A member of the RNA family "DABA-DC-AT RNA" from Vibrio furnissii, 147 nucleotides long.
The base pairs follow the family's consensus structure, which is taken from published work.
By type it is a cis-regulatory element.
NCBI's taxonomy places the organism under Bacteria, Pseudomonadota, Gammaproteobacteria, Vibrionales, Vibrio furnissii.
The sequence is in the family's curated seed alignment.
[Rfam]
RNA sequence: GCAAUCUCGGACAGUGCUUCCGAGGGAUACGCGUAGUGACCAUUCAGGCUGAUUGGGACAUUACGUAGGGUAGGUAUCAGUAAGUCCUUUUACUGAUAGACGGGAUACUCUUGCUGUGGGAACAGCAUGUGAAUGGGAUACCCAACA
Numbered sequence: 001g002c003a004a005u006c007u008c009g010g011a012c013a014g015u016g017c018u019u020c021c022g023a024g025g026g027a028u029a030c031g032c033g034u035a036g037u038g039a040c041c042a043u044u045c046a047g048g049c050u051g052a053u054u055g056g057g058a059c060a061u062u063a064c065g066u067a068g069g070g071u072a073g074g075u076a077u078c079a080g081u082a083a084g085u086c087c088u089u090u091u092a093c094u095g096a097u098a099g100a101c102g103g104g105a106u107a108c109u110c111u112u113g114c115u116g117u118g119g120g121a122a123c124a125g126c127a128u129g130u131g132a133a134u135g136g137g138a139u140a141c142c143c144a145a146c147a
Base pairs, nucleotide, nucleotide: 006024007023008022009021010020011019031066032065033064034063035062036061037060038059040056041055042054075098076097077096078095079094080093081092082091083090084089112127113126114125115124116123117122
Dot-bracket structure: .....((((((.......))))))......((((((((.(((...........)))..))))))))........((((((((((....)))))))))).............((((((....))))))....................